Record summary:
A member of the RNA family "Plastid-psbA-1 3UTR RNA" from Capsicum annuum, 114 nucleotides long.
RNA sequence: UUAUAGUUCAAUCUAUAAAUAAAUAAGAAUCUCAUACUAGUCUAUAGCAGGUUUCGAAAAGAAAGGAGCAAUAAUCAUUUUCUUGUUUUAUCAGGAGGGUGUUAUUGCUCCAUU
Numbered sequence: 001u002u003a004u005a006g007u008u009c010a011a012u013c014u015a016u017a018a019a020u021a022a023a024u025a026a027g028a029a030u031c032u033c034a035u036a037c038u039a040g041u042c043u044a045u046a047g048c049a050g051g052u053u054u055c056g057a058a059a060a061g062a063a064a065g066g067a068g069c070a071a072u073a074a075u076c077a078u079u080u081u082c083u084u085g086u087u088u089u090a091u092c093a094g095g096a097g098g099g100u101g102u103u104a105u106u107g108c109u110c111c112a113u114u
Stems, first nucleotide, its partner, number of pairs: 008023001011020002062114002065111010076101003080097005
Overview: Plastid psbA-1 is a non-coding RNA (ncRNA) present in plastids. It was identified in inverted repeat sequences in the 3 prime untranslate region (3UTR) of photosystem II quinone-binding protein (psbA). On this family, see Richter et al., Plant Commun 2023: "Retrograde signaling in plants: A critical review focusing on the GUN pathway and beyond". Pairs were carried over by alignment from the consensus structure, which was predicted with LocARNA.